RNA sequence: GAUUUCGAUUAACGCUCAGUCUCUGACUGGGCCAACUGGAAG
Number, nucleotide and partner (000 for none) at each position: 001g000002a000003u000004u000005u000006c000007g000008a000009u000010u000011a000012a000013c000014g032015c031016u030017c029018a028019g027020u026021c000022u000023c000024u000025g000026a020027c019028u018029g017030g016031g015032c014033c000034a000035a000036c000037u000038g000039g000040a000041a000042g000